[Rfam]
RNA sequence: CAGCAUCGCUAGGGGUCCUGCUCCUGUUGUGUACCAUUCGCACCAAAACGCGUAUGGCAUAAACAGGGCGGGUGAGAGUUACCCUUAGAACCUGACCCGGAUAAUACCGGCGUAGGGAAGCGUAAUCUGCCAGAC
Number, nucleotide and partner (000 for none) at each position: 001c000002a000003g000004c000005a000006u000007c122008g121009c120010u119011a085012g084013g083014g082015g000016u000017c072018c071019u070020g069021c068022u067023c066024c000025u000026g000027u000028u000029g000030u000031g000032u000033a000034c000035c000036a000037u000038u000039c000040g000041c000042a000043c000044c000045a000046a000047a000048a000049c000050g000051c000052g000053u000054a000055u000056g000057g000058c000059a000060u000061a000062a000063a000064c000065a000066g023067g022068g021069c020070g019071g018072g017073u000074g000075a000076g000077a000078g000079u000080u000081a000082c014083c013084c012085u011086u000087a000088g000089a000090a000091c116092c115093u114094g113095a000096c000097c110098c109099g108100g107101a000102u000103a000104a000105u000106a000107c100108c099109g098110g097111c000112g000113u094114a093115g092116g091117g000118a000119a010120g009121c008122g007123u000124a000125a000126u000127c000128u000129g000130c000131c000132a000133g000134a000135c000
Shown here is a 135-nucleotide RNA from Vogesella sp. EB, a member of the family "TPP riboswitch aptamer (THI element)". It scores 62 bits against the family's covariance model. NCBI's taxonomy places the organism under Bacteria, Pseudomonadota, Betaproteobacteria, Chromobacteriaceae, Vogesella.